[Rfam]
RNA sequence: AGCUGAUAAAGCCACAACCGUUGCGAGGCGGUGUCGGAAAGUUGCGGGUCUCCACAAAGGAGAUAGCCGGGCUGCCUGC
Numbered sequence: 001a002g003c004u005g006a007u008a009a010a011g012c013c014a015c016a017a018c019c020g021u022u023g024c025g026a027g028g029c030g031g032u033g034u035c036g037g038a039a040a041g042u043u044g045c046g047g048g049u050c051u052c053c054a055c056a057a058a059g060g061a062g063a064u065a066g067c068c069g070g071g072c073u074g075c076c077u078g079c
Stems, first nucleotide, its partner, number of pairs: 012037002017032006040073004045069003048064006
RNA: c-di-GMP-I riboswitch aptamer
Organism: Candidatus Electrothrix aarhusensis